[Rfam]
Annotation
The family of this 77-nucleotide RNA sequence from Eptatretus burgeri is "Mammalian CPEB3 ribozyme". For this family Rfam cites "Autocatalytic RNA cleavage in the human beta-globin pre-mRNA promotes transcription termination" (Teixeira et al., Nature, 2004). The organism belongs to Eptatretus, within Eukaryota. A search with the family's covariance model found it, with a score of 38 bits.

RNA sequence: AUAGGAUUUUUGGGGUCAAGAUAGGAGCGUCCUUGUCGCGGCCCUGCGAGUAUCAACAAGAUACUGCUAAUCCUAUC
Numbered sequence: 001a002u003a004g005g006a007u008u009u010u011u012g013g014g015g016u017c018a019a020g021a022u023a024g025g026a027g028c029g030u031c032c033u034u035g036u037c038g039c040g041g042c043c044c045u046g047c048g049a050g051u052a053u054c055a056a057c058a059a060g061a062u063a064c065u066g067c068u069a070a071u072c073c074u075a076u077c
Stems, first nucleotide, its partner, number of pairs: 013044005020077007027039003049065006